[Rfam]
A member of the RNA family "Nuclear RNase P" from Fonsecaea multimorphosa, 404 nucleotides long. The family's RNA type in Rfam is ribozyme. About the family: Ribonuclease P (RNase P) is a ubiquitous endoribonuclease, found in archaea, bacteria and eukarya as well as chloroplasts and mitochondria. Its best characterised activity is the generation of mature 5'-ends of tRNAs by cleaving the 5'-leader elements of precursor-tRNAs. Taxonomically the source falls in Fonsecaea multimorphosa (Eukaryota, Fungi, Dikarya, Herpotrichiellaceae). Clan: RNaseP clan.
RNA sequence: UCCGCUGCGUUCUCUGCCACAAACAAACGACUUGCUCCCGUUUUCCCAACAGUCGAGCAUUCGUCUUCUUCCUUGCAGAUGAGAAAUUCGGAGUAAUCUUCAACCUUUGCACCUCUGCCUUCGAAGCACUCUGUGAUUUCGGGGGCACUUGGUACUGCCCGCGAGGGCCCGGCACGGUUUUUCGCGUGCUCGCAAUCUGGCAUCAGAAAUGUACAGGGCCUCAAGACCGGCAUCCCACGCGGGUGUUUGUGUCUCGAGGGAUUUCCCUUUGGAAGAGCCGUUGCGAAGAUUGUCUGGAGGUCACCUUAGGUGUCCCUUCCUUACUUUAGUGCAAUCGCAGCGGAAACCUAUCGAUCUCCUCCUGGGGGAUGAUAGGGUUUCAAUUCGAUUCCGAUUACUCUGGA
Numbered sequence: 001u002c003c004g005c006u007g008c009g010u011u012c013u014c015u016g017c018c019a020c021a022a023a024c025a026a027a028c029g030a031c032u033u034g035c036u037c038c039c040g041u042u043u044u045c046c047c048a049a050c051a052g053u054c055g056a057g058c059a060u061u062c063g064u065c066u067u068c069u070u071c072c073u074u075g076c077a078g079a080u081g082a083g084a085a086a087u088u089c090g091g092a093g094u095a096a097u098c099u100u101c102a103a104c105c106u107u108u109g110c111a112c113c114u115c116u117g118c119c120u121u122c123g124a125a126g127c128a129c130u131c132u133g134u135g136a137u138u139u140c141g142g143g144g145g146c147a148c149u150u151g152g153u154a155c156u157g158c159c160c161g162c163g164a165g166g167g168c169c170c171g172g173c174a175c176g177g178u179u180u181u182u183c184g185c186g187u188g189c190u191c192g193c194a195a196u197c198u199g200g201c202a203u204c205a206g207a208a209a210u211g212u213a214c215a216g217g218g219c220c221u222c223a224a225g226a227c228c229g230g231c232a233u234c235c236c237a238c239g240c241g242g243g244u245g246u247u248u249g250u251g252u253c254u255c256g257a258g259g260g261a262u263u264u265c266c267c268u269u270u271g272g273a274a275g276a277g278c279c280g281u282u283g284c285g286a287a288g289a290u291u292g293u294c295u296g297g298a299g300g301u302c303a304c305c306u307u308a309g310g311u312g313u314c315c316c317u318u319c320c321u322u323a324c325u326u327u328a329g330u331g332c333a334a335u336c337g338c339a340g341c342g343g344a345a346a347c348c349u350a351u352c353g354a355u356c357u358c359c360u361c362c363u364g365g366g367g368g369a370u371g372a373u374a375g376g377g378u379u380u381c382a383a384u385u386c387g388a389u390u391c392c393g394a395u396u397a398c399u400c401u402g403g404a
Base pairs, nucleotide, nucleotide: 001342003340006337007336013079014078015077016076027064028063029062030061089393090392091391092390093389098288099287100286101285157168158167159166160165171190172189173188174187175186192284193283194282195281199279200278201277215268216267217266343381344380345379346378347377348376349375